[Rfam]
Annotation: U1 spliceosomal RNA: a 165-nucleotide RNA from Peromyscus maniculatus. The match comes from Rfam's covariance-model search (122 bits). NCBI's taxonomy places the organism under Eukaryota, Vertebrata, Boreoeutheria, Rodentia, Peromyscus maniculatus. The family's consensus secondary structure is taken from published work.
RNA sequence: AUACUUACCUGGCAGGGGAGAUGCCAUGACCACGAAAGAGGUUUUUCCCAGGGCAAGGCUUGUGCAUUGUACUCUGGAUGGGCUGACCCCUGCGAUUUCCCCAAAUGUGGGAAACUUGACUGCAUAAUUUGUGGAAGUGGGGUACUGUGCCCAUGCUCUCCCCUU
Numbered sequence: 001a002u003a004c005u006u007a008c009c010u011g012g013c014a015g016g017g018g019a020g021a022u023g024c025c026a027u028g029a030c031c032a033c034g035a036a037a038g039a040g041g042u043u044u045u046u047c048c049c050a051g052g053g054c055a056a057g058g059c060u061u062g063u064g065c066a067u068u069g070u071a072c073u074c075u076g077g078a079u080g081g082g083c084u085g086a087c088c089c090c091u092g093c094g095a096u097u098u099c100c101c102c103a104a105a106u107g108u109g110g111g112a113a114a115c116u117u118g119a120c121u122g123c124a125u126a127a128u129u130u131g132u133g134g135a136a137g138u139g140g141g142g143u144a145c146u147g148u149g150c151c152c153a154u155g156c157u158c159u160c161c162c163c164u165u
Base pairs, nucleotide, nucleotide: 012123013122014121015120016049017048018047019046020045021044023042024041025040027038050091051090052089053088057084058083059082061080062079063078065076093118094117095116096114097113098112100110101109139163140162141161142160144159147156148155149154